mir-393 microRNA precursor family: a 108-nucleotide RNA sequence from Populus tomentosa. The source organism's lineage runs through Eukaryota, Streptophyta, Tracheophyta, Mesangiospermae and Populus. For this family Rfam cites "Role of microRNAs and other sRNAs of plants in their changing environments" (Kruszka et al., J Plant Physiol, 2012). Pairs were carried over by alignment from the consensus structure.
RNA sequence: GCUGGAGUGUUCCAAAGGGAUCGCAUUGAUCUAAUGACUCUCGAUGUCUAAAUCAUAUUAAUGUUUAGUUAUUUCGUUGGAUCAUGCGAUCUCUUAGGAAUUUUCCAG
Numbered sequence: 001g002c003u004g005g006a007g008u009g010u011u012c013c014a015a016a017g018g019g020a021u022c023g024c025a026u027u028g029a030u031c032u033a034a035u036g037a038c039u040c041u042c043g044a045u046g047u048c049u050a051a052a053u054c055a056u057a058u059u060a061a062u063g064u065u066u067a068g069u070u071a072u073u074u075c076g077u078u079g080g081a082u083c084a085u086g087c088g089a090u091c092u093c094u095u096a097g098g099a100a101u102u103u104u105c106c107a108g
Stems, first nucleotide, its partner, number of pairs: 002108005009101005015095007023087004028083005036075001
Its family is annotated with miRNA-mediated post-transcriptional gene silencing and RISC complex in the Gene Ontology.